Shown here is a 93-nucleotide RNA sequence from Leptolyngbya sp. NIES-3755, a member of the family "TPP riboswitch aptamer (THI element)".
The match comes from Rfam's covariance-model search (64 bits).

RNA sequence: CAAUCAAGCUAGGGGUGUCCAACAGGGCUGAGAACAAACCCUUAGAACCUGAGACUGGGUAAUGCCAGCGAAGGGAAGCUACUUAUCAGAGGA
Numbered sequence: 001c002a003a004u005c006a007a008g009c010u011a012g013g014g015g016u017g018u019c020c021a022a023c024a025g026g027g028c029u030g031a032g033a034a035c036a037a038a039c040c041c042u043u044a045g046a047a048c049c050u051g052a053g054a055c056u057g058g059g060u061a062a063u064g065c066c067a068g069c070g071a072a073g074g075g076a077a078g079c080u081a082c083u084u085a086u087c088a089g090a091g092g093a
Base pairs, nucleotide, nucleotide: 007080008079009078010077011042012041013040014039016036017028018027019026020025048074049073050072055068056067057066058065
Dot-bracket structure: ......((((((((.(((((....)))).......)..)))).....(((....((((......))))...)))..)))).............